Description:
A member of the RNA family "skipping-rope RNA", 86 nucleotides long.
RNA sequence: GAGGAUAGAGGUUGAGAAUCUGUCACCAACGCGCCACUUAUAGUGGGUCGAGAAAUGCAGGAGCCCCGACAGUCCUGCCUAUCCUU
Numbered sequence: 001g002a003g004g005a006u007a008g009a010g011g012u013u014g015a016g017a018a019u020c021u022g023u024c025a026c027c028a029a030c031g032c033g034c035c036a037c038u039u040a041u042a043g044u045g046g047g048u049c050g051a052g053a054a055a056u057g058c059a060g061g062a063g064c065c066c067c068g069a070c071a072g073u074c075c076u077g078c079c080u081a082u083c084c085u086u
Stems, first nucleotide, its partner, number of pairs: 001086008011030004020072005032052001034046004057078005
It is annotated as a small RNA. The base pairs follow the family's consensus structure, which is taken from published work.